[Rfam]
RNA sequence: AAAGGCCUGUGAUGAUGAACAUAUUUGCCUACAUUGUCUGAUUGAUCUAGUUGAAGAGUCUUUUCUUACAAGUCUGAGGCCUUU
Numbered sequence: 001a002a003a004g005g006c007c008u009g010u011g012a013u014g015a016u017g018a019a020c021a022u023a024u025u026u027g028c029c030u031a032c033a034u035u036g037u038c039u040g041a042u043u044g045a046u047c048u049a050g051u052u053g054a055a056g057a058g059u060c061u062u063u064u065c066u067u068a069c070a071a072g073u074c075u076g077a078g079g080c081c082u083u084u
Base pairs, nucleotide, nucleotide: 001084002083004081005080006079007078

This 84-nucleotide RNA from Salvia splendens belongs to the Rfam family "Small nucleolar RNA SNORD34". The family is grouped with related families in Rfam's "SNORD34 clan". Rfam describes the family as follows. snoRNA U34 is found in intron 5 of the ribosomal protein L13a gene in humans. Taxonomically the source falls in core Calosphace (Eukaryota, Embryophyta, Gunneridae, Salvia). By type it is a C/D-box small nucleolar RNA. It scores 43 bits against the family's covariance model.